[Rfam]
RNA: Selenocysteine insertion sequence 1
RNA sequence: UUCUCAUUAUGAAAGCCAUUGUAGAAAGCAUUAAUUUGUUGACAGUGGCUGGAAACUUACAAGAGAA
Numbered sequence: 001u002u003c004u005c006a007u008u009a010u011g012a013a014a015g016c017c018a019u020u021g022u023a024g025a026a027a028g029c030a031u032u033a034a035u036u037u038g039u040u041g042a043c044a045g046u047g048g049c050u051g052g053a054a055a056c057u058u059a060c061a062a063g064a065g066a067a
Stems, first nucleotide, its partner, number of pairs: 001067005014050009029038002